Rfam assigns this 139-nucleotide RNA from Carassius auratus to the family "Small nucleolar RNA SNORA13". Rfam's curators write: ACA13 is a member of the H/ACA class of snoRNA that guide the sites of modification of uridines to pseudouridines.
[Rfam]
RNA sequence: UGCCUUUUGUGUUACCCAUUCUUUUCUCUUCCCCUAAAGAAUGUGGUGUCAGCAAAGGCAUACAUAAAAAUUCUUGGUCUGGCAUUUACAAAGUGAUUUCUGUGUAUCACCUUGUCUAAAGCUCAUACCAAGUACAACA
Numbered sequence: 001u002g003c004c005u006u007u008u009g010u011g012u013u014a015c016c017c018a019u020u021c022u023u024u025u026c027u028c029u030u031c032c033c034c035u036a037a038a039g040a041a042u043g044u045g046g047u048g049u050c051a052g053c054a055a056a057g058g059c060a061u062a063c064a065u066a067a068a069a070a071u072u073c074u075u076g077g078u079c080u081g082g083c084a085u086u087u088a089c090a091a092a093g094u095g096a097u098u099u100c101u102g103u104g105u106a107u108c109a110c111c112u113u114g115u116c117u118a119a120a121g122c123u124c125a126u127a128c129c130a131a132g133u134a135c136a137a138c139a
Stems, first nucleotide, its partner, number of pairs: 002059006010051002013048004017043008073132006080125003086119003090115001092112002096107002
Dot-bracket structure: .((((((..((.((((((((((((...........)))))))).)))).))..)))))).............((((((.(((...(((.(.((..((........))...))..).)))...))).)))))).......
The match comes from Rfam's covariance-model search (67 bits). Its Rfam clan is "SNORA13 clan". Rfam classes the family as an H/ACA-box small nucleolar RNA. Rfam links the family to the GO terms nucleolus and RNA processing.